[Rfam]
RNA sequence: GGCAAAUGCACUCUGUGUCACAUUGAAUAAUAGCCACGUGUGAUGACAAUUUGUUAGUUUGCCAUAUUAAAGAAGUGUGUCUUAUCCAUGUAAUCUAGCUCUUAUAUGGGCGAUUACAUUGAAAACUCAUUUUACACUUA
Numbered sequence: 001g002g003c004a005a006a007u008g009c010a011c012u013c014u015g016u017g018u019c020a021c022a023u024u025g026a027a028u029a030a031u032a033g034c035c036a037c038g039u040g041u042g043a044u045g046a047c048a049a050u051u052u053g054u055u056a057g058u059u060u061g062c063c064a065u066a067u068u069a070a071a072g073a074a075g076u077g078u079g080u081c082u083u084a085u086c087c088a089u090g091u092a093a094u095c096u097a098g099c100u101c102u103u104a105u106a107u108g109g110g111c112g113a114u115u116a117c118a119u120u121g122a123a124a125a126c127u128c129a130u131u132u133u134a135c136a137c138u139u140a
Stems, first nucleotide, its partner, number of pairs: 002062006010054002014048003017044007025037001069138001071133003075130003079127001085122002088119008096110001